A member of the RNA family "MIR6217 microRNA precursor family" from Miscanthus lutarioriparius, 227 nucleotides long. NCBI's taxonomy places the organism under Eukaryota, Embryophyta, Poales, Poaceae, Miscanthus. The family's consensus secondary structure was predicted with RNAalifold. It scores 151 bits against the family's covariance model.
RNA sequence: UGGCUACAAAAUAACUUAAUCUGUAGCCACUUUGAGUUACGAUGAUUACUAUAUUAAUUUAUGAUAUUAUAGUAAUUCCUUACUAAGUGGCUUACUAUAACGUUAUUGUAAAUAUCCCCAUGUGUUAUAGUAACCUAAAUAUCAUAAAUAUGUAUUGACAUUAUCAUAAAUUAGUAUAUAAAAUUAUCGUAAAUAGAGGUGGCUACAGAAUAACUUAUUUUUGAAUA
Numbered sequence: 001u002g003g004c005u006a007c008a009a010a011a012u013a014a015c016u017u018a019a020u021c022u023g024u025a026g027c028c029a030c031u032u033u034g035a036g037u038u039a040c041g042a043u044g045a046u047u048a049c050u051a052u053a054u055u056a057a058u059u060u061a062u063g064a065u066a067u068u069a070u071a072g073u074a075a076u077u078c079c080u081u082a083c084u085a086a087g088u089g090g091c092u093u094a095c096u097a098u099a100a101c102g103u104u105a106u107u108g109u110a111a112a113u114a115u116c117c118c119c120a121u122g123u124g125u126u127a128u129a130g131u132a133a134c135c136u137a138a139a140u141a142u143c144a145u146a147a148a149u150a151u152g153u154a155u156u157g158a159c160a161u162u163a164u165c166a167u168a169a170a171u172u173a174g175u176a177u178a179u180a181a182a183a184u185u186a187u188c189g190u191a192a193a194u195a196g197a198g199g200u201g202g203c204u205a206c207a208g209a210a211u212a213a214c215u216u217a218u219u220u221u222u223g224a225a226u227a
Stems, first nucleotide, its partner, number of pairs: 003226001005224001008221007016213003020209014037192011050178013066164002069161002074155001080147003087142003092137001093132011108116001
Rfam 15.1 lists 2,266 matches to the family in 13 species.